[Rfam]
This 147-nucleotide RNA sequence from Metallibacterium scheffleri belongs to the Rfam family "Group II catalytic intron D1-D4-7". A reference for the family is Chu et al. (2001), "Control of branch-site choice by a group II intron", EMBO J. Rfam describes the family as follows. Group II introns are found in rRNA, tRNA and mRNA of organelles in fungi, plants and protists, and also in mRNA in bacteria.

Nucleotides: 147
Base pairs, nucleotide, nucleotide: 002019003018004017005016006015007014027068028067029066030065031064033058034057035056036055037054038053039052040051041050042049043048081092082091083090084089093118094117095116096115102109103108122140123139124138125137126136
Number, partner (000 for none) and nucleotide at each position: 001000c002019u003018c004017g005016g006015u007014g008000u009000u010000c011000a012000g013000c014007c015006a016005c017004c018003g019002g020000u021000a022000g023000c024000c025000u026000a027068g028067g029066a030065g031064c032000a033058g034057u035056g036055c037054g038053g039052a040051a041050c042049g043048g044000g045000u046000a047000a048043c049042u050041g051040u052039u053038c054037c055036g056035u057034g058033c059000c060000g061000a062000g063000c064031g065030c066029u067028c068027u069000g070000a071000c072000a073000a074000u075000g076000u077000a078000g079000c080000c081092a082091c083090c084089c085000u086000c087000g088000c089084g090083g091082g092081u093118a094117c095116g096115u097000c098000g099000a100000c101000c102109c103108c104000g105000c106000a107000a108103g109102g110000g111000g112000c113000c114000g115096g116095c117094g118093u119000g120000a121000c122140c123139u124138c125137g126136g127000a128000a129000g130000a131000u132000g133000u134000a135000c136126c137125c138124g139123a140122g141000u142000a143000g144000g145000c146000g147000c